[Rfam]
Background
A member of the RNA family "Guanidine-II riboswitch aptamer (mini-ykkC)" from Anhinga anhinga, 43 nucleotides long. About the family: Simpler in structure and has fewer highly conserved nucleotide positions than the ykkC-yxkD leader. Despite this each of its two stem-loop structures directly bind free guanidine. Therefore, mini-ykkC RNA motif represents a distinct class of guanidine-sensing RNAs.

RNA sequence: AGGCAGGGACCCCUGCCGAGCCAGGCUGCACCGGGACGACCCG
Numbered sequence: 001a002g003g004c005a006g007g008g009a010c011c012c013c014u015g016c017c018g019a020g021c022c023a024g025g026c027u028g029c030a031c032c033g034g035g036a037c038g039a040c041c042c043g
Stems, first nucleotide, its partner, number of pairs: 002017006032043004
NCBI's taxonomy places the organism under Eukaryota, Saurischia, Neognathae, Anhingidae, Anhinga. Gene Ontology term of the family: regulation of gene expression. The base pairs follow the family's consensus structure, which is taken from published work.